[Rfam]
RNA sequence: CUCAUCUUGACGGGGUGCCCGCGGCGUAGUUGCCGGAGGCUGAGAUAAUACCCGUUGAACCUGAACCGGUUAGUACCGGCGUAGGAAUCGAGAUAAGCACUCGC
Numbered sequence: 001c002u003c004a005u006c007u008u009g010a011c012g013g014g015g016u017g018c019c020c021g022c023g024g025c026g027u028a029g030u031u032g033c034c035g036g037a038g039g040c041u042g043a044g045a046u047a048a049u050a051c052c053c054g055u056u057g058a059a060c061c062u063g064a065a066c067c068g069g070u071u072a073g074u075a076c077c078g079g080c081g082u083a084g085g086a087a088u089c090g091a092g093a094u095a096a097g098c099a100c101u102c103g104c
Stems, first nucleotide, its partner, number of pairs: 006092005011054004016048001017040003060085004066079004